[Rfam]
RNA sequence: CGCCUUUCUUUGCGGCGGACAUCGACCGCCCACAGCGCUGAUCGUGGAGUUCGUCGCUGCUCACCGCGACGAGCACGGAGUCGAUCCGAUCUGCGCGGUCUUGCGCGGUAAGGCCACCCAGAUCGCUCCG
Numbered sequence: 001c002g003c004c005u006u007u008c009u010u011u012g013c014g015g016c017g018g019a020c021a022u023c024g025a026c027c028g029c030c031c032a033c034a035g036c037g038c039u040g041a042u043c044g045u046g047g048a049g050u051u052c053g054u055c056g057c058u059g060c061u062c063a064c065c066g067c068g069a070c071g072a073g074c075a076c077g078g079a080g081u082c083g084a085u086c087c088g089a090u091c092u093g094c095g096c097g098g099u100c101u102u103g104c105g106c107g108g109u110a111a112g113g114c115c116a117c118c119c120a121g122a123u124c125g126c127u128c129c130g
Base pairs, nucleotide, nucleotide: 014030015029016028017027018026076130077129078128079127080126087125088124090122091121092120093119
This 130-nucleotide RNA sequence from Rhodococcus jostii belongs to the Rfam family "ALIL pseudoknot".
The base pairs follow the family's consensus structure, which is taken from published work.
Rfam classes the family as a cis-regulatory element.
Rfam 15.1 lists 2,146 matches to the family in 1,098 species.
NCBI's taxonomy places the organism under Bacteria, Bacillati, Mycobacteriales, Nocardiaceae, Rhodococcus jostii.